[Rfam]
RNA: chrB-a RNA
RNA sequence: ACCAUGGGGCUCGCAAACGCCCCGUGAGGCUUUGGCCCAAGUUUGCAUCCCUUGACCCUUAGCCAAAGGAUGCCGCCAUG
Numbered sequence: 001a002c003c004a005u006g007g008g009g010c011u012c013g014c015a016a017a018c019g020c021c022c023c024g025u026g027a028g029g030c031u032u033u034g035g036c037c038c039a040a041g042u043u044u045g046c047a048u049c050c051c052u053u054g055a056c057c058c059u060u061a062g063c064c065a066a067a068g069g070a071u072g073c074c075g076c077c078a079u080g
Stems, first nucleotide, its partner, number of pairs: 005024006045073006
Dot-bracket structure: ....((((((........))))))....................((((((.................)))))).......